[Rfam]
RNA sequence: GAGGGCUUAACGCGUCAUUAAGCUUUACAGGUGUUUACUCUUCUCGUCCGGAUUGUUCCGGACUCAUCCAGAGCGACAUCGUUGCUUUGUUUGACGCCUCCCUGUUUAACUCCUGAGAGCCGCUUCGCGUGGCUCUUUUUUU
Numbered sequence: 001g002a003g004g005g006c007u008u009a010a011c012g013c014g015u016c017a018u019u020a021a022g023c024u025u026u027a028c029a030g031g032u033g034u035u036u037a038c039u040c041u042u043c044u045c046g047u048c049c050g051g052a053u054u055g056u057u058c059c060g061g062a063c064u065c066a067u068c069c070a071g072a073g074c075g076a077c078a079u080c081g082u083u084g085c086u087u088u089g090u091u092u093g094a095c096g097c098c099u100c101c102c103u104g105u106u107u108a109a110c111u112c113c114u115g116a117g118a119g120c121c122g123c124u125u126c127g128c129g130u131g132g133c134u135c136u137u138u139u140u141u142u
Stems, first nucleotide, its partner, number of pairs: 001042004005013002014036001021032001023030002046063006071087006093106004115137009
Shown here is a 142-nucleotide RNA from Oricola cellulosilytica, a member of the family "Alphaproteobacterial sRNA BjrC1505".
The literature on the family includes a 2012 paper in RNA Biol by Madhugiri et al., "Small RNAs of the Bradyrhizobium/Rhodopseudomonas lineage and their analysis".
A search with the family's covariance model found it, with a score of 56 bits.
By type it is a small RNA.
NCBI's taxonomy places the organism under Bacteria, Pseudomonadati, Hyphomicrobiales, Ahrensiaceae, Oricola.